Shown here is a 178-nucleotide RNA sequence from Haemophilus influenzae, a member of the family "FMN riboswitch aptamer (RFN element)".
It is one of the family's seed sequences.

[Rfam]
RNA sequence: GCGCAUUCUCAGGGCAGGGCGAAAUUCCCUACCGGUGGUAAAGCCCACGAGCGUUUAAAAGUGCGGUCAAUUUCAGGCAAGUUUUUUCUGCGAAAUUGCCCUGACAUUCAUUUUUAAAGUCAGCAGAUUUGGUGAAAUUCCAAAGCCGACAGUAAAGUCUGGAUGAAAGAGAAUAAAA
Numbered sequence: 001g002c003g004c005a006u007u008c009u010c011a012g013g014g015c016a017g018g019g020c021g022a023a024a025u026u027c028c029c030u031a032c033c034g035g036u037g038g039u040a041a042a043g044c045c046c047a048c049g050a051g052c053g054u055u056u057a058a059a060a061g062u063g064c065g066g067u068c069a070a071u072u073u074c075a076g077g078c079a080a081g082u083u084u085u086u087u088c089u090g091c092g093a094a095a096u097u098g099c100c101c102u103g104a105c106a107u108u109c110a111u112u113u114u115u116a117a118a119g120u121c122a123g124c125a126g127a128u129u130u131g132g133u134g135a136a137a138u139u140c141c142a143a144a145g146c147c148g149a150c151a152g153u154a155a156a157g158u159c160u161g162g163a164u165g166a167a168a169g170a171g172a173a174u175a176a177a178a
Base pairs, nucleotide, nucleotide: 005174006173007172008171009170010169017029018028019027031158032157033148034147035048036047037046038045043146044145051124052123128144129143130142131141132140150161151160152159